RNA: Small nucleolar RNA SNORA42/SNORA80 family
Organism: Physeter macrocephalus
RNA sequence: GCAUGGGUUUGGAUUUACGGCAAGCCCGUCCCCCUGGGCCUCUCAUAGUGUCCCAUGUCAGAGAAAACUGGCCCCGAACCAUUGCCUGGCCUCUGUCUGUAGGCCACAGGCACCGAAGUGGUUUGCACAGUG
Numbered sequence: 001g002c003a004u005g006g007g008u009u010u011g012g013a014u015u016u017a018c019g020g021c022a023a024g025c026c027c028g029u030c031c032c033c034c035u036g037g038g039c040c041u042c043u044c045a046u047a048g049u050g051u052c053c054c055a056u057g058u059c060a061g062a063g064a065a066a067a068c069u070g071g072c073c074c075c076g077a078a079c080c081a082u083u084g085c086c087u088g089g090c091c092u093c094u095g096u097c098u099g100u101a102g103g104c105c106a107c108a109g110g111c112a113c114c115g116a117a118g119u120g121g122u123u124u125g126c127a128c129a130g131u132g
Stems, first nucleotide, its partner, number of pairs: 001058004005053004015048003019044002022041001024039001025037002069125003073121002080115001085110002087106006